RNA sequence: CUUACCGGAGGCGAUAUGGAUCCCGAUCCCACCCCUCUCCCGCGAGGGAGAACCCUUUCUUUCCGGUAAGCCUCUCCUCACUGCCUUACCGGAUGCGUAAGGCAGUGACGUUUU
Numbered sequence: 001c002u003u004a005c006c007g008g009a010g011g012c013g014a015u016a017u018g019g020a021u022c023c024c025g026a027u028c029c030c031a032c033c034c035c036u037c038u039c040c041c042g043c044g045a046g047g048g049a050g051a052a053c054c055c056u057u058u059c060u061u062u063c064c065g066g067u068a069a070g071c072c073u074c075u076c077c078u079c080a081c082u083g084c085c086u087u088a089c090c091g092g093a094u095g096c097g098u099a100a101g102g103c104a105g106u107g108a109c110g111u112u113u114u
Stems, first nucleotide, its partner, number of pairs: 001070011017031003036051005080106010
Shown here is a 114-nucleotide RNA from Corythaeola cristata, a member of the family "Magnesium riboswitch aptamer (Magnesium responsive RNA element)". Taxonomically the source falls in Corythaeola (Eukaryota, Dipnotetrapodomorpha, Sauropsida, Dinosauria). The Magnesium sensor RNA element is a cis-regulatory element that regulates the expression of the magnesium transporter protein MgtA. It is located in the 5' UTR of this gene. The element adopts different structures depending on the presence or absence of Mg2+, this has the affect of regulating whether transcription reads through the mgtA coding region or stops within the 5' UTR.